[Rfam]
Nucleotides: 115
Base pairs, nucleotide, nucleotide: 011035012034013032014031015030016029017028018027019026048064049063050062051061052060053059067109068108069107070106071105072104073103074102075101076100077099080095081094082093083092084091085090
Number, partner (000 for none) and nucleotide at each position: 001000g002000u003000u004000a005000a006000a007000c008000g009000a010000c011035g012034a013032g014031u015030u016029u017028c018027g019026g020000g021000c022000g023000a024000a025000g026019c027018c028017g029016a030015a031014a032013c033000a034012u035011c036000g037000c038000a039000g040000u041000a042000u043000u044000a045000u046000a047000u048064g049063u050062g051061c052060g053059c054000u055000u056000a057000u058000c059053g060052c061051g062050c063049a064048c065000g066000a067109a068108u069107g070106c071105a072104a073103c074102a075101g076100u077099u078000u079000c080095c081094a082093a083092a084091g085090u086000u087000c088000a089000a090085a091084c092083u093082u094081u095080g096000u097000u098000c099077a100076a101075c102074u103073g104072u105071u106070g107069c108068a109067u110000u111000u112000u113000a114000a115000g
The family of this 115-nucleotide sequence from Treponema sp. Marseille-Q3903 is "TD-1 RNA".
The family's consensus secondary structure is taken from published work.
Its Rfam clan is "TD (Treponema denticola) motifs".
Rfam classes the family as a cis-regulatory element.
For this family Rfam cites "Identification of 22 candidate structured RNAs in bacteria using the CMfinder comparative genomics pipeline" (Weinberg et al., Nucleic Acids Res, 2007).